[Rfam]
RNA sequence: AAAUGUCUUCGGGGCAGGGUGAAAUUCCCGAUUGGCGGUAAAGUCCGCGAGCGUGAAAGCGCAUGAUUUGGUGCGAGUCCAAAACCAACAGUACAGUCUGGAUCAAAGAAGAUGCAU
Numbered sequence: 001a002a003a004u005g006u007c008u009u010c011g012g013g014g015c016a017g018g019g020u021g022a023a024a025u026u027c028c029c030g031a032u033u034g035g036c037g038g039u040a041a042a043g044u045c046c047g048c049g050a051g052c053g054u055g056a057a058a059g060c061g062c063a064u065g066a067u068u069u070g071g072u073g074c075g076a077g078u079c080c081a082a083a084a085c086c087a088a089c090a091g092u093a094c095a096g097u098c099u100g101g102a103u104c105a106a107a108g109a110a111g112a113u114g115c116a117u
Stems, first nucleotide, its partner, number of pairs: 004114007017029003031097002033087002035048004043085002067083005089100003
This 117-nucleotide sequence from Faecalibacterium sp. An121 belongs to the Rfam family "FMN riboswitch aptamer (RFN element)".
About the family: The RFN element is a highly conserved domain that is found frequently in the 5'-untranslated regions of prokaryotic mRNAs that encode for flavin mononucleotide (FMN) biosynthesis and transport proteins. This element is a metabolite-dependent riboswitch that directly binds FMN in the absence of proteins.
NCBI's taxonomy places the organism under Bacteria, Bacillati, Bacillota, Oscillospiraceae, Faecalibacterium.
The base pairs follow the family's consensus structure, which is taken from published work.